RNA sequence: UGAGUUGGCGGCUAGGGUUCCGCGUCGCGGUCGAGAGCGACGGCUGGUCCGAGAGCUGCCGCCCCGCCGGGAGACAUCCGGAGGGACACGGCGGGAUAAAAUCCCGGGAGAC
Numbered sequence: 001u002g003a004g005u006u007g008g009c010g011g012c013u014a015g016g017g018u019u020c021c022g023c024g025u026c027g028c029g030g031u032c033g034a035g036a037g038c039g040a041c042g043g044c045u046g047g048u049c050c051g052a053g054a055g056c057u058g059c060c061g062c063c064c065c066g067c068c069g070g071g072a073g074a075c076a077u078c079c080g081g082a083g084g085g086a087c088a089c090g091g092c093g094g095g096a097u098a099a100a101a102u103c104c105c106g107g108g109a110g111a112c
Base pairs, nucleotide, nucleotide: 007060008059009058010057011056012055015050016049020047021046022044023042024041025040026039027038028037063085064084065083067081068080069079070078087107089110093105094104095103
A member of the RNA family "Guanidine-I riboswitch aptamer" from Hansschlegelia quercus, 112 nucleotides long. Gene Ontology term of the family: regulation of gene expression. The source organism's lineage runs through Bacteria, Pseudomonadota, Alphaproteobacteria, Methylopilaceae and Hansschlegelia. The base pairs follow the family's consensus structure.